Notes:
The family of this 152-nucleotide RNA sequence from Carpinus fangiana is "U12 minor spliceosomal RNA". Lineage of the source: Eukaryota > Spermatophyta > Gunneridae > Fagales > Carpinus. On this family, see Otake et al., Mol Cell 2002: "The divergent U12-type spliceosome is required for pre-mRNA splicing and is essential for development in Drosophila". It is annotated as a spliceosomal small nuclear RNA.
RNA sequence: CUGCCUUAAACUAAUGAGUAAGGAAAACAAAGCGCGCGGUGGGAGCCGCUCGCAGCGCCCACAGUUAUAUGCGCAAGAAUUUAUGGAGGGGUGAUAGGCUGGCCAAGCGCAGACGCUGCUUACUUUGCAGAACUAGCUUGUGCGGGCCUCCC
Numbered sequence: 001c002u003g004c005c006u007u008a009a010a011c012u013a014a015u016g017a018g019u020a021a022g023g024a025a026a027a028c029a030a031a032g033c034g035c036g037c038g039g040u041g042g043g044a045g046c047c048g049c050u051c052g053c054a055g056c057g058c059c060c061a062c063a064g065u066u067a068u069a070u071g072c073g074c075a076a077g078a079a080u081u082u083a084u085g086g087a088g089g090g091g092u093g094a095u096a097g098g099c100u101g102g103c104c105a106a107g108c109g110c111a112g113a114c115g116c117u118g119c120u121u122a123c124u125u126u127g128c129a130g131a132a133c134u135a136g137c138u139u140g141u142g143c144g145g146g147c148c149u150c151c152c
Stems, first nucleotide, its partner, number of pairs: 004023005032053003036049004055074004091152001093150001096149005102143001104140002107137002116130004